[Rfam]
RNA sequence: UUUGGAUCGAUGAUGUGAUUUCAAAUCUGCGUUAUCUAUCUGCAAUUUCCUUUUAGGAAUUGAAGAUAACCUAUCAUUUCUGAGAUCUGUU
Numbered sequence: 001u002u003u004g005g006a007u008c009g010a011u012g013a014u015g016u017g018a019u020u021u022c023a024a025a026u027c028u029g030c031g032u033u034a035u036c037u038a039u040c041u042g043c044a045a046u047u048u049c050c051u052u053u054u055a056g057g058a059a060u061u062g063a064a065g066a067u068a069a070c071c072u073a074u075c076a077u078u079u080c081u082g083a084g085a086u087c088u089g090u091u
Stems, first nucleotide, its partner, number of pairs: 003089005